[Rfam]
Nucleotides: 086
Stems, first nucleotide, its partner, number of pairs: 001086008011076019031056004
Number, partner (000 for none) and nucleotide at each position: 001086g002085u003084u004083u005082c006081c007080a008079u009000a010000a011076c012075g013074u014073c015072g016071a017070u018069u019068g020067g021066u022065g023064u024063c025062a026061g027060a028059g029058c030000a031056a032055c033054g034053c035000a036000u037000c038000g039000c040000u041000c042000u043000g044000a045000a046000u047000a048000a049000c050000u051000a052000a053034g054033u055032g056031u057000g058029g059028c060027u061026c062025u063024g064023a065022u066021a067020c068019c069018a070017a071016u072015u073014g074013a075012u076011g077000c078000a079008a080007u081006g082005g083004a084003a085002a086001c